RNA sequence: UUACCUCAAAUUUGUAUGGAGUUGGAACGUUGGAACUUUCGCCUACGUUUGCCGCUAGGGGCGCUGUUCCAGUUGCAUAUAAAUUAUAGUUA
Numbered sequence: 001u002u003a004c005c006u007c008a009a010a011u012u013u014g015u016a017u018g019g020a021g022u023u024g025g026a027a028c029g030u031u032g033g034a035a036c037u038u039u040c041g042c043c044u045a046c047g048u049u050u051g052c053c054g055c056u057a058g059g060g061g062c063g064c065u066g067u068u069c070c071a072g073u074u075g076c077a078u079a080u081a082a083a084u085u086a087u088a089g090u091u092a
Stems, first nucleotide, its partner, number of pairs: 009085008018076001020074010042060003047055002